[Rfam]
RNA sequence: ACGUCCUGCCUCGUGAUCGUCUUCUCAACUUUCACCUGAGGCGGGCGGAGUAACGGCGAGGCCCCACGAGGACGUGACUCGUGGGGCCUCGCU
Numbered sequence: 001a002c003g004u005c006c007u008g009c010c011u012c013g014u015g016a017u018c019g020u021c022u023u024c025u026c027a028a029c030u031u032u033c034a035c036c037u038g039a040g041g042c043g044g045g046c047g048g049a050g051u052a053a054c055g056g057c058g059a060g061g062c063c064c065c066a067c068g069a070g071g072a073c074g075u076g077a078c079u080c081g082u083g084g085g086g087c088c089u090c091g092c093u
Stems, first nucleotide, its partner, number of pairs: 002047002005045007013035004019029002055093016
This 93-nucleotide RNA sequence from Streptomyces piniterrae belongs to the Rfam family "sodF sRNA".
NCBI's taxonomy places the organism under Bacteria, Actinomycetota, Kitasatosporales, Streptomycetaceae, Streptomyces.
A reference for the family is Kim et al. (2014), "Inverse regulation of Fe- and Ni-containing SOD genes by a Fur family regulator Nur through small RNA processed from 3'UTR of the sodF mRNA", Nucleic Acids Res.
Rfam links the family to the GO terms negative regulation of translation, mRNA binding and regulation of mRNA stability.
Rfam classes the family as a small RNA.